[Rfam]
RNA sequence: GGGAGGUUGCCCGAGCGGUUAAAGGGGACGGACUGUAAAUCCGUUGGCUAUGCCUACGUAGGUUCGAAUCCUACACCUCCCA
Numbered sequence: 001g002g003g004a005g006g007u008u009g010c011c012c013g014a015g016c017g018g019u020u021a022a023a024g025g026g027g028a029c030g031g032a033c034u035g036u037a038a039a040u041c042c043g044u045u046g047g048c049u050a051u052g053c054c055u056a057c058g059u060a061g062g063u064u065c066g067a068a069u070c071c072u073a074c075a076c077c078u079c080c081c082a
Stems, first nucleotide, its partner, number of pairs: 001081007010026003028044005058074005
RNA: tRNA